Rfam assigns this 56-nucleotide sequence from Sphingomonas sp. ID1715 to the family "sul1 RNA".
By type it is a riboswitch.
The family's consensus secondary structure is taken from published work.
The source organism's lineage runs through Bacteria, Pseudomonadati, Pseudomonadota, Alphaproteobacteria and Sphingomonas.
RNA sequence: GCUGGACUCGGGGCUUAACUGAGUGGCUCGGCCCGGCGCCUACCCCCGGGAUAAUC
Numbered sequence: 001g002c003u004g005g006a007c008u009c010g011g012g013g014c015u016u017a018a019c020u021g022a023g024u025g026g027c028u029c030g031g032c033c034c035g036g037c038g039c040c041u042a043c044c045c046c047c048g049g050g051a052u053a054a055u056c
Base pairs, nucleotide, nucleotide: 006024007023008022009021010020011019032050033049034048035047036046